[Rfam]
RNA sequence: AGUUGAGGUAGAGGCGCGGUGUAUCAAGAGUAAGCUUGCAGAGGCGAGGGAAGCUGAUUAAGCAAGCCGAAAGGGAACACUGCCGAAGUGUGGUUUUUCCCAAAGACCAUGCUGGGCCUAUGCUGAAUAAGUAUAGGACUGUCACCGGAGCAAUUCGGUGGAGAGCUACUUCAGGA
Numbered sequence: 001a002g003u004u005g006a007g008g009u010a011g012a013g014g015c016g017c018g019g020u021g022u023a024u025c026a027a028g029a030g031u032a033a034g035c036u037u038g039c040a041g042a043g044g045c046g047a048g049g050g051a052a053g054c055u056g057a058u059u060a061a062g063c064a065a066g067c068c069g070a071a072a073g074g075g076a077a078c079a080c081u082g083c084c085g086a087a088g089u090g091u092g093g094u095u096u097u098u099c100c101c102a103a104a105g106a107c108c109a110u111g112c113u114g115g116g117c118c119u120a121u122g123c124u125g126a127a128u129a130a131g132u133a134u135a136g137g138a139c140u141g142u143c144a145c146c147g148g149a150g151c152a153a154u155u156c157g158g159u160g161g162a163g164a165g166c167u168a169c170u171u172c173a174g175g176a
Stems, first nucleotide, its partner, number of pairs: 006171006016083007024076002034067006087113012114140002117137008142161007
A member of the RNA family "Lysine riboswitch aptamer" from Tepidanaerobacter syntrophicus, 176 nucleotides long. The family's consensus secondary structure is taken from published work. Gene Ontology term of the family: lysine biosynthetic process. From the family's description: Riboswitches are metabolite binding domains within certain messenger RNAs that serve as precision sensors for their corresponding targets. A search with the family's covariance model found it, with a score of 131 bits. Taxonomically the source falls in Tepidanaerobacter (Bacteria, Bacillota, Clostridia, Tepidanaerobacteraceae).